[Rfam]
RNA: Small nucleolar RNA SNORA74
RNA sequence: CCCAGCAGUAGUCAGCCAUCCUUGACCUGUUCCUGUGAUGGCGUUACACUACUGGGAGAGUAAGGUCUUGUCUUUACCCCCCUGCCUGGUCACUGUUCUGGUGGCAUGUGGUACUGGUGUGAGGCAAAACUGUGCUUCCUUGAGAGUGUGCUAAGCAUUCACUUUGACUGCUUAGUUCUAGUGUGGGAGCAGACAGU
Numbered sequence: 001c002c003c004a005g006c007a008g009u010a011g012u013c014a015g016c017c018a019u020c021c022u023u024g025a026c027c028u029g030u031u032c033c034u035g036u037g038a039u040g041g042c043g044u045u046a047c048a049c050u051a052c053u054g055g056g057a058g059a060g061u062a063a064g065g066u067c068u069u070g071u072c073u074u075u076a077c078c079c080c081c082c083u084g085c086c087u088g089g090u091c092a093c094u095g096u097u098c099u100g101g102u103g104g105c106a107u108g109u110g111g112u113a114c115u116g117g118u119g120u121g122a123g124g125c126a127a128a129a130c131u132g133u134g135c136u137u138c139c140u141u142g143a144g145a146g147u148g149u150g151c152u153a154a155g156c157a158u159u160c161a162c163u164u165u166g167a168c169u170g171c172u173u174a175g176u177u178c179u180a181g182u183g184u185g186g187g188a189g190c191a192g193a194c195a196g197u
Base pairs, nucleotide, nucleotide: 001056002055003054004053005052007050008049009048011047012046015042016041017040018039019038020037021035024032025031065130066129068127069126070125071124072123073122079116082111083110084109085108087106088105091103092102093101094100133191134190135189136188137187138186139185148178150176152174153173154172155171156170157169